A member of the RNA family "ZMP/ZTP riboswitch aptamer (pfl RNA motif)" from Megasphaera vaginalis, 78 nucleotides long. A search with the family's covariance model found it, with a score of 59 bits. NCBI's taxonomy places the organism under Bacteria, Bacillati, Veillonellales, Veillonellaceae, Megasphaera.
[Rfam]
RNA sequence: CAUAGAUCAUGUGACUGACGGAAGUGGGUUGACCACAGGGAGCAUGAUCGAUGCGAGCCGACCGUCUGGGCAGAGAUU
Numbered sequence: 001c002a003u004a005g006a007u008c009a010u011g012u013g014a015c016u017g018a019c020g021g022a023a024g025u026g027g028g029u030u031g032a033c034c035a036c037a038g039g040g041a042g043c044a045u046g047a048u049c050g051a052u053g054c055g056a057g058c059c060g061a062c063c064g065u066c067u068g069g070g071c072a073g074a075g076a077u078u
Stems, first nucleotide, its partner, number of pairs: 003051001005049008015039002017066005024036004057071003
Dot-bracket structure: ..(.((((((((..(([[[[[..((((.....)))).))..)))))))).).....(((..]]]]]..))).......
Rfam links the family to the GO terms one-carbon metabolic process and regulation of purine nucleotide biosynthetic process.